[Rfam]
RNA sequence: GGGGAGAAAGGCACCGGUGUGUCUCGCAGACUGCAAAUCUGCUGACCUGCCCGCGAUCCGGGCGGGGGUCCGGUUCAACUCCGACUUCUCCCC
Numbered sequence: 001g002g003g004g005a006g007a008a009a010g011g012c013a014c015c016g017g018u019g020u021g022u023c024u025c026g027c028a029g030a031c032u033g034c035a036a037a038u039c040u041g042c043u044g045a046c047c048u049g050c051c052c053g054c055g056a057u058c059c060g061g062g063c064g065g066g067g068g069u070c071c072g073g074u075u076c077a078a079c080u081c082c083g084a085c086u087u088c089u090c091c092c093c
Stems, first nucleotide, its partner, number of pairs: 001090006009024006025044001026042005046066005069084001071083003
A member of the RNA family "Selenocysteine transfer RNA" from Desulfofarcimen acetoxidans, 93 nucleotides long. For this family Rfam cites "tRNAscan-SE: a program for improved detection of transfer RNA genes in genomic sequence" (Lowe and Eddy, Nucleic Acids Res, 1997). The base pairs follow the family's consensus structure, which is taken from published work. The family has 109 seed sequences and 4,211 matches in Rfam 15.1. Gene Ontology term of the family: triplet codon-amino acid adaptor activity.